[Rfam]
A member of the RNA family "BsrC" from Bacillus licheniformis, 83 nucleotides long. The 301 nucleotide sequence from Kouji Nakamura has been trimmed to a highly conserved ~85 nucleotide long core to form this family. The literature on the family includes a 2008 paper in Gene by Saito et al., "Novel small RNA-encoding genes in the intergenic regions of Bacillus subtilis". The source organism's lineage runs through Bacteria, Caryophanales, Bacillaceae, Bacillus and Bacillus licheniformis. Pairs were carried over by alignment from the consensus structure, which was predicted with CMfinder.
RNA sequence: AUACAAGACAACGAAAGCCCUACCUCUCAUUCGUCCUUGCGGCUCCGAAGCCGCGCCAGUGUGAAUUGUGAAACAAAAAGUCU
Numbered sequence: 001a002u003a004c005a006a007g008a009c010a011a012c013g014a015a016a017g018c019c020c021u022a023c024c025u026c027u028c029a030u031u032c033g034u035c036c037u038u039g040c041g042g043c044u045c046c047g048a049a050g051c052c053g054c055g056c057c058a059g060u061g062u063g064a065a066u067u068g069u070g071a072a073a074c075a076a077a078a079a080g081u082c083u
Base pairs, nucleotide, nucleotide: 031064032063033062036059037058038055039054040053041052042051043050044049